[Rfam]
RNA: Small nucleolar RNA snoR136
RNA sequence: GUGGCUUCGCAGAAACUUAAAAACUGAUAAAUUUACUAAUAGUUAUGAGUUUUUGUGAUUGUGAAGCCUACAUUUAUUGUUCUCCUCGCUAUCCAUUUCCAUAAUUAUAUGGAUUCUCGGACGUCGGGGACCGACAUCC
Numbered sequence: 001g002u003g004g005c006u007u008c009g010c011a012g013a014a015a016c017u018u019a020a021a022a023a024c025u026g027a028u029a030a031a032u033u034u035a036c037u038a039a040u041a042g043u044u045a046u047g048a049g050u051u052u053u054u055g056u057g058a059u060u061g062u063g064a065a066g067c068c069u070a071c072a073u074u075u076a077u078u079g080u081u082c083u084c085c086u087c088g089c090u091a092u093c094c095a096u097u098u099c100c101a102u103a104a105u106u107a108u109a110u111g112g113a114u115u116c117u118c119g120g121a122c123g124u125c126g127g128g129g130a131c132c133g134a135c136a137u138c139c
Stems, first nucleotide, its partner, number of pairs: 001071002003068003008063005016057001019054007027046002030044003079132001081130005087123002092121003101110003